Rfam assigns this 86-nucleotide RNA sequence from Cytobacillus kochii to the family "c-di-GMP-I riboswitch aptamer".
The base pairs follow the family's consensus structure, which is taken from published work.
It scores 80 bits against the family's covariance model.

RNA sequence: UAUCAUAUUGGGCAAAUUUUACGAAAGUAAAAGACGCAAAGCCACGGGCCUAAAGCAUAUAUUGUCAUGGCAGCCGGGUUGCAGAU
Number, nucleotide and partner (000 for none) at each position: 001u000002a000003u000004c000005a000006u000007a000008u000009u000010g000011g000012g037013c036014a000015a000016a000017u032018u031019u030020u029021a028022c027023g000024a000025a000026a000027g022028u021029a020030a019031a018032a017033g000034a000035c000036g013037c012038a000039a000040a080041g079042c078043c077044a000045c076046g075047g074048g071049c070050c069051u000052a000053a000054a000055g065056c064057a063058u000059a000060u000061a000062u000063u057064g056065u055066c000067a000068u000069g050070g049071c048072a000073g000074c047075c046076g045077g043078g042079u041080u040081g000082c000083a000084g000085a000086u000
Annotation: Its family is annotated with cyclic-di-GMP binding in the Gene Ontology.